[Rfam]
A member of the RNA family "mir-156 microRNA precursor family" from Cocos nucifera, 84 nucleotides long. On this family, see Reinhart et al., Genes Dev 2002: "MicroRNAs in plants". Pairs were carried over by alignment from the consensus structure, which was predicted with PFOLD. It scores 67 bits against the family's covariance model. Taxonomically the source falls in Cocos (Eukaryota, Embryophyta, Mesangiospermae, Cocoseae).
RNA sequence: CUGACAGAAGAGAGUGAGCACCCAGCGCGGCAAUUGCAUCAGGGAAUGCCGUUCCCGUUGCGUGCUCACUUCUCUUUCUGUCAG
Numbered sequence: 001c002u003g004a005c006a007g008a009a010g011a012g013a014g015u016g017a018g019c020a021c022c023c024a025g026c027g028c029g030g031c032a033a034u035u036g037c038a039u040c041a042g043g044g045a046a047u048g049c050c051g052u053u054c055c056c057g058u059u060g061c062g063u064g065c066u067c068a069c070u071u072c073u074c075u076u077u078c079u080g081u082c083a084g
Stems, first nucleotide, its partner, number of pairs: 001084009010074003013070009023060003